[Rfam]
RNA: mir-250 microRNA precursor family
Nucleotides: 081
Base pairs, nucleotide, nucleotide: 003079004078005077006076007075008074011071012070014068015067016066017065019063020062022060023059025058026057027056028055029054031052032051033049034048035047
Number, partner (000 for none) and nucleotide at each position: 001000u002000c003079g004078g005077a006076c007075c008074g009000c010000c011071c012070c013000u014068u015067c016066a017065g018000u019063u020062g021000a022060c023059u024000c025058g026057u027056g028055a029054u030000c031052c032051g033049c034048c035047g036000a037000c038000u039000u040000u041000g042000a043000u044000a045000u046000a047035u048034g049033g050000a051032c052031g053000a054029a055028u056027c057026a058025c059023a060022g061000u062020c063019a064000c065017c066016u067015g068014a069000u070012g071011g072000u073000a074008c075007g076006g077005u078004c079003u080000u081000u